[Rfam]
RNA sequence: UUAAUAAAUGGUGAUGGAGUUCGCCUUGAAAUGCUAAUAAACGCUGAUGACUCCUACUGAUAC
Numbered sequence: 001u002u003a004a005u006a007a008a009u010g011g012u013g014a015u016g017g018a019g020u021u022c023g024c025c026u027u028g029a030a031a032u033g034c035u036a037a038u039a040a041a042c043g044c045u046g047a048u049g050a051c052u053c054c055u056a057c058u059g060a061u062a063c
Base pairs, nucleotide, nucleotide: 010025011024012023013022016054017053018052019051020050021049033044034043035041
A member of the RNA family "Fluoride riboswitch aptamer (crcB RNA motif)" from Vallitalea pronyensis, 63 nucleotides long. Pairs were carried over by alignment from the consensus structure, which is taken from published work.